[Rfam]
The family of this 144-nucleotide RNA from Rhododendron williamsianum is "Small nucleolar RNA snoR136".
For this family Rfam cites "Mining small RNA sequencing data: a new approach to identify small nucleolar RNAs in Arabidopsis" (Chen and Wu, Nucleic Acids Res, 2009).
The source organism's lineage runs through Eukaryota, Viridiplantae, Streptophytina, Euphyllophyta and Rhododendron.
Rfam classes the family as an H/ACA-box small nucleolar RNA.

RNA sequence: ACGGCUUCACUAUGUGAAUACGGUUGUGCUACACUAAUACAAUGAUGUUUGUGUGGGGCUGUUUGAAGUGGCGCUAGAAAAUUGUUCCUCUUGCUAUCCGGUGAGACAUUUUAUAGUUCAUUUGGACAUUGGGGAACUACAUUU
Numbered sequence: 001a002c003g004g005c006u007u008c009a010c011u012a013u014g015u016g017a018a019u020a021c022g023g024u025u026g027u028g029c030u031a032c033a034c035u036a037a038u039a040c041a042a043u044g045a046u047g048u049u050u051g052u053g054u055g056g057g058g059c060u061g062u063u064u065g066a067a068g069u070g071g072c073g074c075u076a077g078a079a080a081a082u083u084g085u086u087c088c089u090c091u092u093g094c095u096a097u098c099c100g101g102u103g104a105g106a107c108a109u110u111u112u113a114u115a116g117u118u119c120a121u122u123u124g125g126a127c128a129u130u131g132g133g134g135a136a137c138u139a140c141a142u143u144u
Base pairs, nucleotide, nucleotide: 002077003075004074005073008070009069010068011067013065016064017063019061020060026059027058029056030055031054032053033052036050037049084137085136086135087134088133089132090131092128093127097126098125099124100123101122106114108112